[Rfam]
RNA sequence: UUCUUAUCAAGAGAGAUGGAGGGACUGGCCCUGUGAAAUCUCGGCAACAGACUUAAUUGUACUGUGCCAAAUCCUGUAGCAUUACGCUAAAAGAUGAGAA
Numbered sequence: 001u002u003c004u005u006a007u008c009a010a011g012a013g014a015g016a017u018g019g020a021g022g023g024a025c026u027g028g029c030c031c032u033g034u035g036a037a038a039u040c041u042c043g044g045c046a047a048c049a050g051a052c053u054u055a056a057u058u059g060u061a062c063u064g065u066g067c068c069a070a071a072u073c074c075u076g077u078a079g080c081a082u083u084a085c086g087c088u089a090a091a092a093g094a095u096g097a098g099a100a
Stems, first nucleotide, its partner, number of pairs: 001100008013042005021031003025076001027074002043068004048064002051060002072092001077089004
RNA: SAM riboswitch aptamer (S box leader)
Organism: Jeotgalicoccus saudimassiliensis